[Rfam]
RNA sequence: GGGGUGGGCCAGGGAGUCGCUCGCCACAAGGCGGGAGGAAAGUCCGGGCUCCACAGGGCAGGGUGCCGGGUAACGCCCGGCGGGGGUAACCCCGGGAAAGUGCCACAGAAAGCAAACCGCCUCGCCCCCAUGGGGCGGGGUAAGGGUGAAAGGGUGCGGUAAGAGCGCACCGCGUCGUCGGUAACGGCGGCGGCACGGUAAACCCCACCCGGAGCAAGGCCGAAUAGGGGAGCAUGGGCGUGGCCCGCGUCGCUCCCGGGUAGGCUGCUCGAGGCGGUCGGUAACGGCCGUCCCAGAUGAAUGGCUCCCACCCGUCGCCCUCUGGACGGCGGGGACAGAACCCGGCUUAUCGGCCCACCUCGAUU
Numbered sequence: 001g002g003g004g005u006g007g008g009c010c011a012g013g014g015a016g017u018c019g020c021u022c023g024c025c026a027c028a029a030g031g032c033g034g035g036a037g038g039a040a041a042g043u044c045c046g047g048g049c050u051c052c053a054c055a056g057g058g059c060a061g062g063g064u065g066c067c068g069g070g071u072a073a074c075g076c077c078c079g080g081c082g083g084g085g086g087u088a089a090c091c092c093c094g095g096g097a098a099a100g101u102g103c104c105a106c107a108g109a110a111a112g113c114a115a116a117c118c119g120c121c122u123c124g125c126c127c128c129c130a131u132g133g134g135g136c137g138g139g140g141u142a143a144g145g146g147u148g149a150a151a152g153g154g155u156g157c158g159g160u161a162a163g164a165g166c167g168c169a170c171c172g173c174g175u176c177g178u179c180g181g182u183a184a185c186g187g188c189g190g191c192g193g194c195a196c197g198g199u200a201a202a203c204c205c206c207a208c209c210c211g212g213a214g215c216a217a218g219g220c221c222g223a224a225u226a227g228g229g230g231a232g233c234a235u236g237g238g239c240g241u242g243g244c245c246c247g248c249g250u251c252g253c254u255c256c257c258g259g260g261u262a263g264g265c266u267g268c269u270c271g272a273g274g275c276g277g278u279c280g281g282u283a284a285c286g287g288c289c290g291u292c293c294c295a296g297a298u299g300a301a302u303g304g305c306u307c308c309c310a311c312c313c314g315u316c317g318c319c320c321u322c323u324g325g326a327c328g329g330c331g332g333g334g335a336c337a338g339a340a341c342c343c344g345g346c347u348u349a350u351c352g353g354c355c356c357a358c359c360u361c362g363a364u365u
Stems, first nucleotide, its partner, number of pairs: 001361010011350001012309007020035006040348003044345005049214004056246004061210005066080005081094005095205002100203002102199003117145002119141009153171006172194001173192008218266004228257006237251005273292008